[Rfam]
RNA sequence: UUUGUGAGAACCAUUUGAAUCAAGUAGUGUAGUGAUUCAAAUGGUUCUCGUCGGCU
Numbered sequence: 001u002u003u004g005u006g007a008g009a010a011c012c013a014u015u016u017g018a019a020u021c022a023a024g025u026a027g028u029g030u031a032g033u034g035a036u037u038c039a040a041a042u043g044g045u046u047c048u049c050g051u052c053g054g055c056u
Stems, first nucleotide, its partner, number of pairs: 004051019
Dot-bracket structure: ...(((((((((((((((((((..........))))))))))))))))))).....
Plastid-ccsA-ndhD-2 3UTR RNA: a 56-nucleotide RNA sequence from Oresitrophe rupifraga. On this family, see Richter et al., Plant Commun 2023: "Retrograde signaling in plants: A critical review focusing on the GUN pathway and beyond". Rfam classes the family as a cis-regulatory element. Pairs were carried over by alignment from the consensus structure, which was predicted with LocARNA. The source organism's lineage runs through Eukaryota, Tracheophyta, eudicotyledons, Saxifragales and Oresitrophe.